[Rfam]
Small nucleolar RNA snoR26: a 93-nucleotide sequence from Zea mays. Its family is annotated with RNA processing and nucleolus in the Gene Ontology.

RNA sequence: CGAGCAUCAGUGAUGUUACAUCCAAUUAAACUCAUCCUUGCACUUUGAGCUGCGCGGUGAAGAAACCAUUGGGGAAAGUUAUCUGAGAUGCUC
Numbered sequence: 001c002g003a004g005c006a007u008c009a010g011u012g013a014u015g016u017u018a019c020a021u022c023c024a025a026u027u028a029a030a031c032u033c034a035u036c037c038u039u040g041c042a043c044u045u046u047g048a049g050c051u052g053c054g055c056g057g058u059g060a061a062g063a064a065a066c067c068a069u070u071g072g073g074g075a076a077a078g079u080u081a082u083c084u085g086a087g088a089u090g091c092u093c
Base pairs, nucleotide, nucleotide: 002093003092004091005090006089007088008087